[Rfam]
RNA sequence: GUGAUGACCCCGCGUUGCUGGCGGACCCCCGACCUGGCAGCAACGCGGGGUUCGCCU
Numbered sequence: 001g002u003g004a005u006g007a008c009c010c011c012g013c014g015u016u017g018c019u020g021g022c023g024g025a026c027c028c029c030c031g032a033c034c035u036g037g038c039a040g041c042a043a044c045g046c047g048g049g050g051u052u053c054g055c056c057u
Stems, first nucleotide, its partner, number of pairs: 003055001007051014022036001
Rfam assigns this 57-nucleotide RNA sequence from Actinophytocola xanthii to the family "F6 TB sRNA".
The family's RNA type in Rfam is small RNA.
The match comes from Rfam's covariance-model search (62 bits).
For this family Rfam cites "Identification of small RNAs in Mycobacterium tuberculosis" (Arnvig and Young, Mol Microbiol, 2009).
Rfam 15.1 lists 310 matches to the family in 304 species.
The source organism's lineage runs through Bacteria, Bacillati, Actinomycetota, Pseudonocardiaceae and Actinophytocola.